[Rfam]
RNA sequence: CUGGGGACUAACCCGGGUGGUUAGGCGUCACCUGUUACCCGAAACCGCCGUUAUGCGGGGGGUGAUAGGUCGGGAGCGGCUUUGGCGAUCUUUCCGGAGCGUGCCCGCCCUGACUGCGAAGCCUUGUCCUGUGAGAUCAGUGGAAAAGUAUCAAAAUUCCGGAGGGGAUGGAGACUUUUAGCUGCGGAGACCGGUUCAGGCCCGGAAGGGAGCAGACUUACCGCAGACAUCUGGUGCCCACAGGGUUGCAGGGUGGAGGAAGGGUAUCACGCGAAAGAAAGGCACGCGAUUCCCACCCCGAUCACGUCCCUUU
Numbered sequence: 001c002u003g004g005g006g007a008c009u010a011a012c013c014c015g016g017g018u019g020g021u022u023a024g025g026c027g028u029c030a031c032c033u034g035u036u037a038c039c040c041g042a043a044a045c046c047g048c049c050g051u052u053a054u055g056c057g058g059g060g061g062g063u064g065a066u067a068g069g070u071c072g073g074g075a076g077c078g079g080c081u082u083u084g085g086c087g088a089u090c091u092u093u094c095c096g097g098a099g100c101g102u103g104c105c106c107g108c109c110c111u112g113a114c115u116g117c118g119a120a121g122c123c124u125u126g127u128c129c130u131g132u133g134a135g136a137u138c139a140g141u142g143g144a145a146a147a148g149u150a151u152c153a154a155a156a157u158u159c160c161g162g163a164g165g166g167g168a169u170g171g172a173g174a175c176u177u178u179u180a181g182c183u184g185c186g187g188a189g190a191c192c193g194g195u196u197c198a199g200g201c202c203c204g205g206a207a208g209g210g211a212g213c214a215g216a217c218u219u220a221c222c223g224c225a226g227a228c229a230u231c232u233g234g235u236g237c238c239c240a241c242a243g244g245g246u247u248g249c250a251g252g253g254u255g256g257a258g259g260a261a262g263g264g265u266a267u268c269a270c271g272c273g274a275a276a277g278a279a280a281g282g283c284a285c286g287c288g289a290u291u292c293c294c295a296c297c298c299c300g301a302u303c304a305c306g307u308c309c310c311u312u313u
Stems, first nucleotide, its partner, number of pairs: 003311006011063004015033007038059004043054001068303007078293002082289003086286002090282004095277001100271004107265005114258002121254007128244006135237001136235005141229002143179004149173001151171002156169005182226006193218004201210003

Shown here is a 313-nucleotide RNA from Methanoplanus limicola, a member of the family "Archaeal signal recognition particle RNA".
A search with the family's covariance model found it, with a score of 177 bits.
Rfam links the family to the GO terms SRP-dependent cotranslational protein targeting to membrane, signal sequence recognition and signal recognition particle, plasma membrane targeting.
The organism belongs to Methanoplanus limicola, within Archaea.